Rfam assigns this 263-nucleotide sequence to the family "Streptomyces sRNA 4677". A reference for the family is Hindra et al. (2014), "Complex intra-operonic dynamics mediated by a small RNA in Streptomyces coelicolor", PLoS One. Rfam describes the family as follows. Located in the intergenic region between anti-sigma factor SCO4677 gene and a putative regulatory protein gene SCO4676. scr4677 expression requires the SCO4677 activity and scr4677 sRNA itself seem to affect the levels of the SCO4676-associated transcripts.
[Rfam]
RNA sequence: CGCUUCGGCGGCGCGGGCGGUCUUUCCCAAGGAACACGAGAGGGAAAGGACCCCUGACCAAACCCCACCCCUACUCCCGGCCCCGAGCACGCCUCACCCUGACGGGUGAAUAUGCCAACUCGACUGGAUUCGAAGCAGGUUGCGUGCUCUACGCUCGCCGCAGCGCAGCACGACGCGACACAACCGCAGACAUGCAACGGCCCUCGCCGGGACGGCAAUCCCAGUGCGAGGGCCUGACCACCAAGGAAGAGACAACCUUCCCG
Dot-bracket structure: ......((.(.....(((.(.........................................................).)))...........((((((....))))))..............((((...........................))).....)...................................(((((.(((.((((......))))...))).)))))....).))..(((((.......)))))..
Numbered sequence: 001c002g003c004u005u006c007g008g009c010g011g012c013g014c015g016g017g018c019g020g021u022c023u024u025u026c027c028c029a030a031g032g033a034a035c036a037c038g039a040g041a042g043g044g045a046a047a048g049g050a051c052c053c054c055u056g057a058c059c060a061a062a063c064c065c066c067a068c069c070c071c072u073a074c075u076c077c078c079g080g081c082c083c084c085g086a087g088c089a090c091g092c093c094u095c096a097c098c099c100u101g102a103c104g105g106g107u108g109a110a111u112a113u114g115c116c117a118a119c120u121c122g123a124c125u126g127g128a129u130u131c132g133a134a135g136c137a138g139g140u141u142g143c144g145u146g147c148u149c150u151a152c153g154c155u156c157g158c159c160g161c162a163g164c165g166c167a168g169c170a171c172g173a174c175g176c177g178a179c180a181c182a183a184c185c186g187c188a189g190a191c192a193u194g195c196a197a198c199g200g201c202c203c204u205c206g207c208c209g210g211g212a213c214g215g216c217a218a219u220c221c222c223a224g225u226g227c228g229a230g231g232g233c234c235u236g237a238c239c240a241c242c243a244a245g246g247a248a249g250a251g252a253c254a255a256c257c258u259u260c261c262c263g
Stems, first nucleotide, its partner, number of pairs: 007242002010239001016082003020078001094109006124163001125157003199234005205228003209222004245261005